This 96-nucleotide RNA from Cannabis sativa belongs to the Rfam family "Small nucleolar RNA Z157/R69/R10". The source organism's lineage runs through Eukaryota, Streptophyta, Streptophytina, Rosales and Cannabis. For this family Rfam cites "The high diversity of snoRNAs in plants: identification and comparative study of 120 snoRNA genes from Oryza sativa" (Chen et al., Nucleic Acids Res, 2003). The family is grouped with related families in Rfam's "SNORD52 clan". Rfam classes the family as a C/D-box small nucleolar RNA.
Nucleotides: 096
Stems, first nucleotide, its partner, number of pairs: 002095001004093001006091003039066002044061001045059005
Number, partner (000 for none) and nucleotide at each position: 001000u002095a003000c004093u005000c006091u007090g008089u009000u010000u011000u012000u013000a014000u015000g016000a017000u018000a019000c020000a021000a022000u023000u024000u025000u026000g027000u028000g029000g030000a031000c032000u033000a034000g035000a036000g037000u038000u039066u040065c041000u042000g043000a044061u045059c046058u047057g048056g049055g050000a051000a052000u053000u054000a055049c056048u057047c058046a059045g060000a061044a062000u063000c064000u065040g066039a067000u068000u069000a070000c071000a072000a073000a074000c075000c076000c077000u078000u079000g080000g081000c082000u083000g084000u085000c086000u087000g088000a089008g090007c091006a092000u093004a094000u095002u096000u

It scores 59 bits against the family's covariance model.